[Rfam]
RNA sequence: CUGGGAUGAUGCUUCUUUAGCCAAAUCAGACAGUUUGAUGUGCUCCUUAGGCAUCCACCUCAAAGCUAUUUGUUAGAUGGGAUGCCUUUUGUUGAAGCACAUCCUCUGAUGAUACCCUCGGGAUUGGUUUCUUGUCUUACCGGA
Numbered sequence: 001c002u003g004g005g006a007u008g009a010u011g012c013u014u015c016u017u018u019a020g021c022c023a024a025a026u027c028a029g030a031c032a033g034u035u036u037g038a039u040g041u042g043c044u045c046c047u048u049a050g051g052c053a054u055c056c057a058c059c060u061c062a063a064a065g066c067u068a069u070u071u072g073u074u075a076g077a078u079g080g081g082a083u084g085c086c087u088u089u090u091g092u093u094g095a096a097g098c099a100c101a102u103c104c105u106c107u108g109a110u111g112a113u114a115c116c117c118u119c120g121g122g123a124u125u126g127g128u129u130u131c132u133u134g135u136c137u138u139a140c141c142g143g144a
Stems, first nucleotide, its partner, number of pairs: 001143004